[Rfam]
Notes:
The family of this 309-nucleotide RNA sequence from Cephalotus follicularis is "Plant signal recognition particle RNA". The family's RNA type in Rfam is non-coding RNA gene. NCBI's taxonomy places the organism under Eukaryota, Euphyllophyta, Gunneridae, rosids, Cephalotus.
RNA sequence: ACCGGGUUUGGUAACUCAAGCUUGUGACCCAAGUGGGGGUAUUAAAGAGACUGAAUAUUGGUUUGACCCCGGAGGCUGGGCCCUUAAAGGAAUGUUUGCUGGCCUGCCCGAUUCCAAGAAGAGAGUUGAAUCAUGUGCUUUGGGCUAAGGCCUGAAGUUCGUGAUUCCUAGAGUAGAGGGGACAGCGUGAGGCUGGUUUCACAGAGCAACGAAUAAACCUCUCCCUUUCUUCAGUGGAAGGAUAACAGGCUGGUUACUUGAGACCCAACGACGCCAAAUGGGUCACUAUCAAACUAGACAGUCUCUCUU
Numbered sequence: 001a002c003c004g005g006g007u008u009u010g011g012u013a014a015c016u017c018a019a020g021c022u023u024g025u026g027a028c029c030c031a032a033g034u035g036g037g038g039g040u041a042u043u044a045a046a047g048a049g050a051c052u053g054a055a056u057a058u059u060g061g062u063u064u065g066a067c068c069c070c071g072g073a074g075g076c077u078g079g080g081c082c083c084u085u086a087a088a089g090g091a092a093u094g095u096u097u098g099c100u101g102g103c104c105u106g107c108c109c110g111a112u113u114c115c116a117a118g119a120a121g122a123g124a125g126u127u128g129a130a131u132c133a134u135g136u137g138c139u140u141u142g143g144g145c146u147a148a149g150g151c152c153u154g155a156a157g158u159u160c161g162u163g164a165u166u167c168c169u170a171g172a173g174u175a176g177a178g179g180g181g182a183c184a185g186c187g188u189g190a191g192g193c194u195g196g197u198u199u200c201a202c203a204g205a206g207c208a209a210c211g212a213a214u215a216a217a218c219c220u221c222u223c224c225c226u227u228u229c230u231u232c233a234g235u236g237g238a239a240g241g242a243u244a245a246c247a248g249g250c251u252g253g254u255u256a257c258u259u260g261a262g263a264c265c266c267a268a269c270g271a272c273g274c275c276a277a278a279u280g281g282g283u284c285a286c287u288a289u290c291a292a293a294c295u296a297g298a299c300a301g302u303c304u305c306u307c308u309u
Stems, first nucleotide, its partner, number of pairs: 001040003004023008028037003044308001046306008056296002058292003064285003068281002074275003078266003082262001084260001087259001089258002094254001099253008108241002112239005118232008128167008137158009168173001175222005186211003193204003